[Rfam]
RNA: SAM/SAH riboswitch aptamer
RNA sequence: UUACCGCCACAACGGCUUCCUGACGUGGCGGAACAACAUAAUCGGAGCA
Numbered sequence: 001u002u003a004c005c006g007c008c009a010c011a012a013c014g015g016c017u018u019c020c021u022g023a024c025g026u027g028g029c030g031g032a033a034c035a036a037c038a039u040a041a042u043c044g045g046a047g048c049a
Base pairs, nucleotide, nucleotide: 004031005030006029007028008027009026010025013022014021015048016047017046019045020044